[Rfam]
RNA sequence: CUAUCUGAGUCUAAGGCGAAGUCGCUGGUAGCAGUACUUUGAAGCUAAAGUUUUAAGCCAAAACGACCAUAAAUACAGACUUGAUAAUCAUAUUCACUGAUGACGUCAAAAGGGUUUCCAUGACACAACAGCCACAAGUUAAAUACCGU
Numbered sequence: 001c002u003a004u005c006u007g008a009g010u011c012u013a014a015g016g017c018g019a020a021g022u023c024g025c026u027g028g029u030a031g032c033a034g035u036a037c038u039u040u041g042a043a044g045c046u047a048a049a050g051u052u053u054u055a056a057g058c059c060a061a062a063a064c065g066a067c068c069a070u071a072a073a074u075a076c077a078g079a080c081u082u083g084a085u086a087a088u089c090a091u092a093u094u095c096a097c098u099g100a101u102g103a104c105g106u107c108a109a110a111a112g113g114g115u116u117u118c119c120a121u122g123a124c125a126c127a128a129c130a131g132c133c134a135c136a137a138g139u140u141a142a143a144u145a146c147c148g149u
Base pairs, nucleotide, nucleotide: 004079005078006077007076009074010073012071013070015059016058017057022047024045025044026043097131098130099129101127102126105124106123107122108121112119113118
RNA: PepN 5' UTR thermometer